[Rfam]
RNA sequence: AGAUUGAGAUGAAGAUUAGAUUAUACCUAUUGGGAUGAUUGCCUGCAUGAUGGCAAAACCUGUAUUUAGCUCUAUCUGAUCAUCA
Numbered sequence: 001a002g003a004u005u006g007a008g009a010u011g012a013a014g015a016u017u018a019g020a021u022u023a024u025a026c027c028u029a030u031u032g033g034g035a036u037g038a039u040u041g042c043c044u045g046c047a048u049g050a051u052g053g054c055a056a057a058a059c060c061u062g063u064a065u066u067u068a069g070c071u072c073u074a075u076c077u078g079a080u081c082a083u084c085a
Stems, first nucleotide, its partner, number of pairs: 002084002005082002040055004